[Rfam]
RNA sequence: GGGGGAUUAGCUCAAAUGGUAGAGUGCUUGCUUCGCAUGCGAGAGGUAGCGGGAUCGUUACCCGUAUCCUCUA
Numbered sequence: 001g002g003g004g005g006a007u008u009a010g011c012u013c014a015a016a017u018g019g020u021a022g023a024g025u026g027c028u029u030g031c032u033u034c035g036c037a038u039g040c041g042a043g044a045g046g047u048a049g050c051g052g053g054a055u056c057g058u059u060a061c062c063c064g065u066a067u068c069c070u071c072u073a
Stems, first nucleotide, its partner, number of pairs: 001072007010025004027043005049065005
This 73-nucleotide RNA sequence from Oreochromis aureus belongs to the Rfam family "tRNA".
The source organism's lineage runs through Eukaryota, Actinopterygii, Osteoglossocephalai, Eurypterygia and Oreochromis.